[Rfam]
RNA sequence: CUCUUAUCCAGAGAGGUGGAGGGACUGGCCAGGUGAAGCCUCGGCAACCAUUGAAAUUUUGUUCAAACGGUGCCAAUUCCAGCAGAUCCCCGAUAUCUGAAAUAUAAGAG
Numbered sequence: 001c002u003c004u005u006a007u008c009c010a011g012a013g014a015g016g017u018g019g020a021g022g023g024a025c026u027g028g029c030c031a032g033g034u035g036a037a038g039c040c041u042c043g044g045c046a047a048c049c050a051u052u053g054a055a056a057u058u059u060u061g062u063u064c065a066a067a068c069g070g071u072g073c074c075a076a077u078u079c080c081a082g083c084a085g086a087u088c089c090c091c092g093a094u095a096u097c098u099g100a101a102a103u104a105u106a107a108g109a110g
Stems, first nucleotide, its partner, number of pairs: 001110007013042005022030002025082004043074004048070002051066004078102001083099005
A member of the RNA family "SAM riboswitch aptamer (S box leader)" from Thermoactinomyces mirandus, 110 nucleotides long. The match comes from Rfam's covariance-model search (86 bits). The source organism's lineage runs through Bacteria, Bacilli, Caryophanales, Thermoactinomycetaceae and Thermoactinomyces.